RNA sequence: AAGCACAACCAGCCGAGUCCGGCCCGCGCCCGCGGCCCGGAACGGGGGAACCACCUGGGGCCCGGACCCGUCCGGGCGCCACGGGGCGAAUCGCCGCCAUCGCGCGGCGUAGCGCAGCUCUAGAGCGCGAGCCCGUCAGCUAACCCCGUAGGCGUGAAGAGCAAAGGA
Numbered sequence: 001a002a003g004c005a006c007a008a009c010c011a012g013c014c015g016a017g018u019c020c021g022g023c024c025c026g027c028g029c030c031c032g033c034g035g036c037c038c039g040g041a042a043c044g045g046g047g048g049a050a051c052c053a054c055c056u057g058g059g060g061c062c063c064g065g066a067c068c069c070g071u072c073c074g075g076g077c078g079c080c081a082c083g084g085g086g087c088g089a090a091u092c093g094c095c096g097c098c099a100u101c102g103c104g105c106g107g108c109g110u111a112g113c114g115c116a117g118c119u120c121u122a123g124a125g126c127g128c129g130a131g132c133c134c135g136u137c138a139g140c141u142a143a144c145c146c147c148g149u150a151g152g153c154g155u156g157a158a159g160a161g162c163a164a165a166g167g168a
Stems, first nucleotide, its partner, number of pairs: 012153003018041005042149006052083001084134003092109004112128004

The record is a 168-nucleotide RNA sequence from Baekduia soli, which matches "c-di-AMP riboswitch aptamer (ydaO/yuaA leader)" in Rfam.